[Rfam]
The family of this 294-nucleotide RNA sequence from Gibbsiella quercinecans is "ryfA RNA".
The literature on the family includes a 2001 paper in Genes Dev by Wassarman et al., "Identification of novel small RNAs using comparative genomics and microarrays".
It is annotated as a small RNA.
About the family: This family consists of a number of bacterial RNA genes of 305 bases in length. The ryfA RNA gene is present in E. coli, Shigella flexneri and Salmonella species where it is found between the ydaN and dbpA genes. The function of this RNA is unknown.

RNA sequence: CCGGCCCCUCUCACCGACUAGCAAUCGGUCACCGACCUUCGGAUAGGGAACCUGAAUACCGUAAACGCAAGCACAAGACAUGCUUGCAUCGUUGCGGUUCUGUCGGUGGAGCUUCAAUGGUUGCGGUUUAAACGGAACCGCACAAUGAAAAGACACUUUUGUGUUCUGCUCAUUGUUUUUGGUGGGGUCGUUGGUACUGUGAAAGGAGGCUGGUCAGUCACCAGCAACCAGAUCAAUAUCAGCGUGAACAUUCAAAGCAAGUAGCCACAAGCCGCCCUUCGGGGCGGCUUGUUU
Number, nucleotide and partner (000 for none) at each position: 001c000002c000003g000004g000005c000006c000007c047008c046009u045010c000011u043012c042013a000014c028015c027016g026017a025018c000019u000020a000021g000022c000023a000024a000025u017026c016027g015028g014029u000030c000031a000032c000033c000034g000035a000036c000037c000038u000039u000040c000041g000042g012043a011044u000045a009046g008047g007048g000049a000050a000051c000052c000053u000054g000055a000056a000057u000058a183059c182060c181061g000062u000063a000064a000065a000066c000067g000068c086069a085070a084071g083072c082073a081074c000075a000076a000077g000078a000079c000080a000081u073082g072083c071084u070085u069086g068087c000088a122089u120090c119091g118092u117093u116094g115095c000096g113097g000098u111099u110100c109101u108102g107103u000104c000105g000106g000107u102108g101109g100110a099111g098112c000113u096114u000115c094116a093117a092118u091119g090120g089121u000122u088123g141124c140125g139126g138127u137128u136129u135130a000131a000132a000133c000134g000135g129136a128137a127138c126139c125140g124141c123142a176143c175144a174145a173146u172147g171148a170149a000150a000151a000152g165153a164154c163155a162156c161157u000158u000159u000160u000161g156162u155163g154164u153165u152166c000167u000168g000169c000170u148171c147172a146173u145174u144175g143176u142177u000178u000179u000180u000181g060182g059183u058184g262185g000186g000187g000188u260189c000190g258191u257192u256193g000194g000195u000196a000197c000198u000199g000200u000201g000202a000203a000204a000205g000206g000207a000208g000209g000210c000211u000212g222213g221214u220215c000216a000217g000218u000219c000220a214221c213222c212223a000224g000225c000226a000227a000228c000229c000230a000231g000232a000233u000234c000235a000236a000237u250238a000239u248240c000241a000242g000243c000244g000245u000246g000247a000248a239249c000250a237251u000252u000253c000254a000255a000256a192257g191258c190259a000260a188261g000262u184263a000264g000265c000266c000267a292268c291269a290270a289271g288272c287273c286274g285275c284276c283277c282278u000279u000280c000281g000282g277283g276284g275285c274286g273287g272288c271289u270290u269291g268292u267293u000294u000